Rfam assigns this 92-nucleotide RNA from Robiginitalea biformata to the family "SAM-I/IV (S-adenosyl methionine) riboswitch aptamer". Gene Ontology terms of the family: regulation of gene expression and S-adenosylmethionine metabolic process.

[Rfam]
RNA sequence: UUCCUGCAUCAGGAACGCUAAGGCGCGUACCAACCGAGCAUAAAAGCCACGGUGGUUCAGAAUGCGGACGGUCGUCAAAAAAAUAAUUCCUU
Dot-bracket structure: .....((((.....((((....)))..)(((..(((.((..[..[))..))).))).....)))).(((....))).......]..].....
Rfam 15.1 lists 567 matches to the family in 508 species. It scores 56 bits against the family's covariance model.